[Rfam]
RNA sequence: GGUAGCCGUAGACGAUCGCGGGAUUGAGGGUCGGUUCGCUGAUGACGCGCACGGUUUGGGUGGUGGCGUCGUAGAGUCCGCCCCAAUACAUCGCUUUCGCUACCAGUAACAAGGCACCCGCCCCUAAAAAGAUGAGGUGAUGGCCCAGAAUUAAGCCCAAUUGUUUGGGGUCGCCCCA
Numbered sequence: 001g002g003u004a005g006c007c008g009u010a011g012a013c014g015a016u017c018g019c020g021g022g023a024u025u026g027a028g029g030g031u032c033g034g035u036u037c038g039c040u041g042a043u044g045a046c047g048c049g050c051a052c053g054g055u056u057u058g059g060g061u062g063g064u065g066g067c068g069u070c071g072u073a074g075a076g077u078c079c080g081c082c083c084c085a086a087u088a089c090a091u092c093g094c095u096u097u098c099g100c101u102a103c104c105a106g107u108a109a110c111a112a113g114g115c116a117c118c119c120g121c122c123c124c125u126a127a128a129a130a131g132a133u134g135a136g137g138u139g140a141u142g143g144c145c146c147a148g149a150a151u152u153a154a155g156c157c158c159a160a161u162u163g164u165u166u167g168g169g170g171u172c173g174c175c176c177c178a
Stems, first nucleotide, its partner, number of pairs: 136175006144169005

A member of the RNA family "Antisense RNA which regulates isiA expression" from Oxynema aestuarii, 178 nucleotides long. For this family Rfam cites "An internal antisense RNA regulates expression of the photosynthesis gene isiA" (Duhring et al., Proc Natl Acad Sci U S A, 2006). NCBI's taxonomy places the organism under Bacteria, Bacillati, Oscillatoriales, Oxynema, Oxynema aestuarii. A search with the family's covariance model found it, with a score of 110 bits. The family's consensus secondary structure was predicted with PFOLD.